The family of this 73-nucleotide RNA from Alligator mississippiensis is "Mammalian CPEB3 ribozyme". Its family is annotated with RNA nuclease activity in the Gene Ontology. It scores 35 bits against the family's covariance model.

[Rfam]
RNA sequence: UGCAAGUUUCAGGCCAUAGCAGAAGUGCUCACAGCAUGGAUGGUCAGAUUCCAACAAAUCUACGAAUUCUACU
Dot-bracket structure: ............[[[..((.(((((((.......)))]].]....(((((......))))).....)))).))